[Rfam]
RNA: Small nucleolar RNA SNORD121A
Organism: Phrynocephalus forsythii
RNA sequence: GGCCUGCAGACUAUGAUGUGGUUAUUCUUUCCAAGCACAUAUCUGACGGCUGCGUGUGGAAAUCAAGUCUCCCUGAGUCUUCUGGCC
Numbered sequence: 001g002g003c004c005u006g007c008a009g010a011c012u013a014u015g016a017u018g019u020g021g022u023u024a025u026u027c028u029u030u031c032c033a034a035g036c037a038c039a040u041a042u043c044u045g046a047c048g049g050c051u052g053c054g055u056g057u058g059g060a061a062a063u064c065a066a067g068u069c070u071c072c073c074u075g076a077g078u079c080u081u082c083u084g085g086c087c
Stems, first nucleotide, its partner, number of pairs: 001087004006082001008080004